[Rfam]
Source information: This 180-nucleotide sequence from Pseudomonas putida belongs to the Rfam family "Pseudomonas sRNA P1". Taxonomically the source falls in Pseudomonas putida (Bacteria, Pseudomonadati, Gammaproteobacteria, Pseudomonadaceae). A reference for the family is Livny et al. (2006), "Identification of 17 Pseudomonas aeruginosa sRNAs and prediction of sRNA-encoding genes in 10 diverse pathogens using the bioinformatic tool sRNAPredict2", Nucleic Acids Res. The base pairs follow the family's consensus structure, which was predicted with RNAalifold. It is annotated as a non-coding RNA gene.
RNA sequence: ACCCUCGUAUUAUUGUGUUCUGGGUUGAGACCGAGCUUAGCCUUGUUCAUUUUUUUACACAACACCUCCGUAAAAAAUAAAACACGGUGCACCGGAGAUAGCCCUUUACGCGGUAAAUAGCGGAUAAUGCUUUGCCCCGAUAUGCAGCAAAUCUGCCGUAGAUGUGCCAUUUCAGGGCAU
Numbered sequence: 001a002c003c004c005u006c007g008u009a010u011u012a013u014u015g016u017g018u019u020c021u022g023g024g025u026u027g028a029g030a031c032c033g034a035g036c037u038u039a040g041c042c043u044u045g046u047u048c049a050u051u052u053u054u055u056u057a058c059a060c061a062a063c064a065c066c067u068c069c070g071u072a073a074a075a076a077a078u079a080a081a082a083c084a085c086g087g088u089g090c091a092c093c094g095g096a097g098a099u100a101g102c103c104c105u106u107u108a109c110g111c112g113g114u115a116a117a118u119a120g121c122g123g124a125u126a127a128u129g130c131u132u133u134g135c136c137c138c139g140a141u142a143u144g145c146a147g148c149a150a151a152u153c154u155g156c157c158g159u160a161g162a163u164g165u166g167c168c169a170u171u172u173c174a175g176g177g178c179a180u
Stems, first nucleotide, its partner, number of pairs: 022104006033092001035090001040088003043084001045083003051077008162180004167175001
Notes
From the family's description: This small RNA (sRNA) was computationally identified in the genome of the opportunistic pathogen Pseudomonas aeruginosa and its expression verified by northern blot analysis. There appears to be two related copies of P1 sRNA in the P.aeruginosa PA01 genome and both copies appear to be located upstream of predicted glutamine synthetase genes. This sRNA appears to be conserved amongst several Pseudomonas species. P1 has a predicted Rho independent terminator at the 3' end but the function of P1 is unknown.